The record is a 125-nucleotide sequence from Chania multitudinisentens, which matches "Phenylalanine leader peptide" in Rfam. It is annotated as a cis-regulatory leader. The family has 71 seed sequences and 379 matches in Rfam 15.1. For this family Rfam cites "Nucleotide sequence of the leader region of the phenylalanine operon of Escherichia coli" (Zurawski et al., Proc Natl Acad Sci U S A, 1978).
[Rfam]
RNA sequence: CAAGCAUGCACGCUGCUAUUUUCCGUUUCUUUUUUUACUUUAGCGCCUGAUUUCAGGAGGCUUUGCGCGUAAGAAAAGAAACGGAAAGUAGCGCCGAAGCCUCCCUUAGUGGAGGCUUUUUUGUU
Numbered sequence: 001c002a003a004g005c006a007u008g009c010a011c012g013c014u015g016c017u018a019u020u021u022u023c024c025g026u027u028u029c030u031u032u033u034u035u036u037a038c039u040u041u042a043g044c045g046c047c048u049g050a051u052u053u054c055a056g057g058a059g060g061c062u063u064u065g066c067g068c069g070u071a072a073g074a075a076a077a078g079a080a081a082c083g084g085a086a087a088g089u090a091g092c093g094c095c096g097a098a099g100c101c102u103c104c105c106u107u108a109g110u111g112g113a114g115g116c117u118u119u120u121u122u123g124u125u
Stems, first nucleotide, its partner, number of pairs: 015092004020087014035072004041055001056066001058064002096119009